Record summary:
This 458-nucleotide RNA sequence from Hippolais icterina belongs to the Rfam family "Vertebrate telomerase RNA". A reference for the family is Chen et al. (2000), "Secondary structure of vertebrate telomerase RNA", Cell. Rfam describes the family as follows. Telomerase is a ribonucleoprotein reverse transcriptase that synthesises telomeric DNA. Telomerase RNAs differ greatly in sequence and structure between vertebrates, ciliates and yeasts, but they share a 5' pseudoknot structure close to the template sequence. Lineage of the source: Eukaryota > Deuterostomia > Sauria > Archosauria > Hippolais. A search with the family's covariance model found it, with a score of 136 bits. Its Rfam clan is "Telomerase clan". The family has 37 seed sequences and 523 matches in Rfam 15.1.
RNA sequence: CGUGCCGGGGUGCGCAGGCCUUGCGGCCAACUAACCCUAAUGGCGGCUGCGCCCCUCACACCCGCCCGCUGUUUUACUCGCUGACUUUCAGCGGGCGAAGGGAGCGGCCUAGGGGAAGGGGAGGAAGGGAUGGGGGGAAAAGAGUUCCGGCCUCAAAAAAAGCCAGCGAGGGGGAUCCACACCCCGGCCCACCCUGAGGUCCCUGUCCCUCCUCCGUAACCAGGGAUGGUCCCGCCCUCGCCCCUCGUGGAGGCCGCGGUCGGCGGGCCCAGCGCCGCUGCCGCCGCGAAGAGUUCGUCUCUGUCAGCCUCGGCGGCGGCCGGGACCAGAGGGCCGGCCGGCCCACCCUGGGCAGCCGGGGGACCCCAGCAGAGCAAAACGGGGGCGGCGCCGCGCGGCGCUGAGCAGCCGUGGCUCCCUAAGACGUGGAGUGCGCGGUCGGUGCCGCCCCGACACCC
Number, nucleotide and partner (000 for none) at each position: 001c000002g000003u000004g188005c187006c186007g185008g184009g183010g182011u181012g180013c000014g178015c000016a176017g000018g000019c174020c173021u172022u171023g000024c000025g000026g000027c000028c000029a000030a000031c000032u000033a000034a000035c000036c000037c000038u000039a000040a000041u000042g000043g000044c000045g000046g000047c000048u000049g000050c000051g105052c104053c000054c102055c101056u000057c000058a000059c000060a000061c000062c000063c097064g096065c095066c094067c093068g092069c091070u090071g089072u000073u000074u000075u000076a000077c000078u000079c000080g167081c166082u165083g164084a000085c162086u160087u159088u158089c071090a070091g069092c068093g067094g066095g065096c064097g063098a000099a000100g000101g055102g054103a000104g052105c051106g000107g000108c000109c000110u000111a000112g000113g000114g000115g000116a000117a000118g000119g000120g000121g000122a000123g000124g000125a000126a000127g000128g000129g000130a000131u000132g000133g000134g000135g000136g000137g000138a000139a000140a000141a000142g000143a000144g000145u000146u000147c000148c000149g000150g000151c000152c000153u000154c000155a000156a000157a000158a088159a087160a086161a000162g085163c000164c083165a082166g081167c080168g000169a000170g000171g022172g021173g020174g019175a000176u016177c000178c014179a000180c012181a011182c010183c009184c008185c007186g006187g005188c004189c000190c000191a000192c000193c000194c369195u368196g367197a000198g365199g364200u363201c000202c000203c000204u000205g000206u000207c000208c000209c000210u000211c000212c000213u000214c000215c000216g000217u000218a000219a000220c000221c000222a000223g000224g339225g338226a000227u336228g335229g334230u333231c332232c331233c000234g000235c000236c324237c323238u322239c000240g320241c319242c318243c000244c000245u000246c000247g000248u000249g000250g000251a000252g000253g000254c000255c288256g287257c286258g285259g284260u000261c283262g282263g281264c280265g000266g276267g275268c274269c000270c000271a000272g000273c000274g268275c267276c266277g000278c000279u000280g264281c263282c262283g261284c259285c258286g257287c256288g255289a000290a302291g301292a300293g299294u000295u000296c000297g000298u000299c293300u292301c291302u290303g000304u000305c000306a000307g000308c000309c000310u000311c000312g000313g000314c000315g000316g000317c000318g242319g241320c240321c000322g238323g237324g236325a000326c000327c000328a000329g000330a000331g232332g231333g230334c229335c228336g227337g000338c225339c224340g000341g000342c000343c000344c000345a000346c000347c000348c000349u000350g000351g000352g000353c000354a000355g000356c000357c000358g000359g000360g000361g000362g000363a200364c199365c198366c000367c196368a195369g194370c000371a000372g000373a000374g000375c000376a000377a000378a000379a000380c000381g000382g000383g450384g449385g448386c447387g446388g445389c444390g443391c442392c441393g000394c000395g000396c000397g000398g000399c000400g000401c000402u000403g000404a000405g000406c000407a000408g000409c438410c437411g436412u435413g434414g000415c000416u431417c000418c429419c428420u000421a000422a000423g000424a000425c000426g000427u000428g419429g418430a000431g416432u000433g000434c413435g412436c411437g410438g409439u000440c000441g392442g391443u390444g389445c388446c387447g386448c385449c384450c383451c000452g000453a000454c000455a000456c000457c000458c000